[Rfam]
RNA sequence: AAAAAGGGCUUGUGCCAUGCAUGGCACAUCACUGUUCCCUGCACAGGGGAUGGUGGUGCGGAAUCGUUAUCAAGAGAUUUCGGAAGCAUAAUUUUUGUGACUUGGACUGCCUGUGAUCGUUAUUCCGGGCAUCCUC
Numbered sequence: 001a002a003a004a005a006g007g008g009c010u011u012g013u014g015c016c017a018u019g020c021a022u023g024g025c026a027c028a029u030c031a032c033u034g035u036u037c038c039c040u041g042c043a044c045a046g047g048g049g050a051u052g053g054u055g056g057u058g059c060g061g062a063a064u065c066g067u068u069a070u071c072a073a074g075a076g077a078u079u080u081c082g083g084a085a086g087c088a089u090a091a092u093u094u095u096u097g098u099g100a101c102u103u104g105g106a107c108u109g110c111c112u113g114u115g116a117u118c119g120u121u122a123u124u125c126c127g128g129g130c131a132u133c134c135u136c
Stems, first nucleotide, its partner, number of pairs: 008087004013026005027058012059082007104134003109130005115125002